[Rfam]
Nucleotides: 124
Stems, first nucleotide, its partner, number of pairs: 005019005020060003025055004030051003039045001084111006090104006
Number, partner (000 for none) and nucleotide at each position: 001000a002000c003000u004000g005019u006018c007017u008016u009015u010000a011000u012000c013000a014000c015009g016008g017007g018006g019005a020060g021059c022058g023000u024000g025055g026054u027053u028052g029000u030051g031050c032049c033000g034000a035000u036000g037000a038000u039045c040000g041000u042000u043000a044000a045039g046000u047000g048000a049032g050031g051030c052028c053027g054026a055025u056000c057000u058022u059021g060020c061000u062000g063000a064000c065000a066000c067000c068000g069000u070000g071000u072000a073000a074000c075000a076000a077000c078000a079000c080000a081000c082000g083000c084111g085110c086109g087108c088107c089106g090104c091103g092102c093101u094100a095099g096000u097000c098000a099095u100094u101093g102092g103091c104090g105000u106089u107088g108087g109086u110085g111084c112000a113000a114000u115000u116000u117000u118000u119000g120000a121000a122000c123000c124000c

U4atac minor spliceosomal RNA: a 124-nucleotide sequence from Rhipicephalus microplus. The source organism's lineage runs through Eukaryota, Protostomia, Ecdysozoa, Arthropoda and Boophilus. It is annotated as a spliceosomal small nuclear RNA. The literature on the family includes a 2005 paper in RNA by Lorkovic et al., "Evolutionary conservation of minor U12-type spliceosome between plants and humans". Rfam's curators write: U4atac is an essential component of the minor U12-type spliceosome complex which is required for removal of the rarer class of eukaryotic introns (AT-AC, U12-type). The family's consensus secondary structure is taken from published work.